[Rfam]
RNA sequence: UGGAGUGUAUUAUGAUGAUAAUCAGGAGAAUAUCUUAGGACACCUUAUGACACGGUUUCUGUGUAUGAGAAAGAUUUGUUAUCCUGAUUCUCCA
Numbered sequence: 001u002g003g004a005g006u007g008u009a010u011u012a013u014g015a016u017g018a019u020a021a022u023c024a025g026g027a028g029a030a031u032a033u034c035u036u037a038g039g040a041c042a043c044c045u046u047a048u049g050a051c052a053c054g055g056u057u058u059c060u061g062u063g064u065a066u067g068a069g070a071a072a073g074a075u076u077u078g079u080u081a082u083c084c085u086g087a088u089u090c091u092c093c094a
Stems, first nucleotide, its partner, number of pairs: 001094005007088001048054002
This 94-nucleotide sequence from Brassica carinata belongs to the Rfam family "Small nucleolar RNA snoR31/Z110/Z27". Lineage of the source: Eukaryota > Mesangiospermae > malvids > Brassiceae > Brassica. Rfam 15.1 lists 571 matches to the family in 198 species. The family's RNA type in Rfam is C/D-box small nucleolar RNA. It scores 61 bits against the family's covariance model. The literature on the family includes a 2001 paper in J Mol Biol by Barneche et al., "Identification of 66 box C/D snoRNAs in Arabidopsis thaliana: extensive gene duplications generated multiple isoforms predicting new ribosomal RNA 2'-O-methylation sites".